[Rfam]
RNA sequence: AUUGCAGGAUUGCACAUAUUAGCGUUCUGCUCUUAGAUAUGCUUUUCUUGCUGAAAAUGUUUCCUGCUAUAUUAGUAAUUCUGAGAAAAUUGGCAGUUGGAUUCUGCUAAAGGCUUUCAUUGAGAACAUUAACAACCAUUUUUUCUGUAUUU
Numbered sequence: 001a002u003u004g005c006a007g008g009a010u011u012g013c014a015c016a017u018a019u020u021a022g023c024g025u026u027c028u029g030c031u032c033u034u035a036g037a038u039a040u041g042c043u044u045u046u047c048u049u050g051c052u053g054a055a056a057a058u059g060u061u062u063c064c065u066g067c068u069a070u071a072u073u074a075g076u077a078a079u080u081c082u083g084a085g086a087a088a089a090u091u092g093g094c095a096g097u098u099g100g101a102u103u104c105u106g107c108u109a110a111a112g113g114c115u116u117u118c119a120u121u122g123a124g125a126a127c128a129u130u131a132a133c134a135a136c137c138a139u140u141u142u143u144u145c146u147g148u149a150u151u152u
Stems, first nucleotide, its partner, number of pairs: 004067005009061001014044001017041003083145008092136001096133004